[Rfam]
Source information: The record is a 72-nucleotide RNA sequence from Fusarium falciforme, which matches "tRNA" in Rfam.
RNA sequence: AGGGCUUUAGUUUAAGGGUAAAACAUACGACUUUUAAUCGUAUUCAUGGGGGUUCAAAUCCCUUAGGCCUUA
Number, nucleotide and partner (000 for none) at each position: 001a071002g070003g069004g068005c067006u066007u065008u000009a000010g024011u023012u022013u021014a000015a000016g000017g000018g000019u000020a000021a013022a012023a011024c010025a000026u042027a041028c040029g039030a038031c000032u000033u000034u000035u000036a000037a000038u030039c029040g028041u027042a026043u000044u000045c000046a000047u000048g064049g063050g062051g061052g060053u000054u000055c000056a000057a000058a000059u000060c052061c051062c050063u049064u048065a007066g006067g005068c004069c003070u002071u001072a000
Pairs were carried over by alignment from the consensus structure, which is taken from published work.